[Rfam]
RNA sequence: AUCUCCCGGGCGCGUUUCUCCUCCCAUUGGCGCCCCGGUGAGUGUUCCCCUCUGGAGGUUUCGCCUCAACAGGCACUUCCAUCACUUAGCCGGAUCGUUUCGAUCCGGCUUUUUU
Dot-bracket structure: (.(((.(((..((((..............)))).)))..)))).........(((((((...............)))))))......((((((((((...)))))))))).....

Background
Shown here is a 115-nucleotide RNA sequence from Mesorhizobium sp. L-8-10, a member of the family "Alphaproteobacterial ar15". Pairs were carried over by alignment from the consensus structure. For this family Rfam cites "The Sinorhizobium meliloti RNA chaperone Hfq influences central carbon metabolism and the symbiotic interaction with alfalfa" (Torres-Quesada et al., BMC Microbiol, 2010). It scores 48 bits against the family's covariance model. By type it is a small RNA. Taxonomically the source falls in Mesorhizobium (Bacteria, Pseudomonadati, Pseudomonadota, Hyphomicrobiales). Rfam 15.1 lists 316 matches to the family in 177 species. Gene Ontology term of the family: protein binding.